The record is a 45-nucleotide RNA sequence from Bryocella elongata, which matches "Acido-Lenti-1 RNA" in Rfam. The match comes from Rfam's covariance-model search (41 bits). The family's consensus secondary structure is taken from published work. Rfam 15.1 lists 2,607 matches to the family in 171 species.
RNA sequence: CCUAGGCCUUCGGCCUAGGCUACGACCCUGCGGGCCUUCGGCCCU
Numbered sequence: 001c002c003u004a005g006g007c008c009u010u011c012g013g014c015c016u017a018g019g020c021u022a023c024g025a026c027c028c029u030g031c032g033g034g035c036c037u038u039c040g041g042c043c044c045u
Stems, first nucleotide, its partner, number of pairs: 001019008032044005
Dot-bracket structure: ((((((((...))))))))............(((((...))))).